[Rfam]
RNA sequence: GCUGGCAUCAUGAUGAUAACUGUUUGCCGUUUACCCAGCUGAAUUUUGUGAUGAGCAAUCUUGUAUCUGAUAUGCCAGU
Numbered sequence: 001g002c003u004g005g006c007a008u009c010a011u012g013a014u015g016a017u018a019a020c021u022g023u024u025u026g027c028c029g030u031u032u033a034c035c036c037a038g039c040u041g042a043a044u045u046u047u048g049u050g051a052u053g054a055g056c057a058a059u060c061u062u063g064u065a066u067c068u069g070a071u072a073u074g075c076c077a078g079u
Base pairs, nucleotide, nucleotide: 001079002078003077004076005075006074007073
The family of this 79-nucleotide RNA sequence from Indicator maculatus is "Small nucleolar RNA SNORD87". The family has 10 seed sequences and 539 matches in Rfam 15.1. A search with the family's covariance model found it, with a score of 53 bits. The source organism's lineage runs through Eukaryota, Euteleostomi, Sarcopterygii, Theropoda and Indicator. Rfam links the family to the GO terms RNA processing and nucleolus.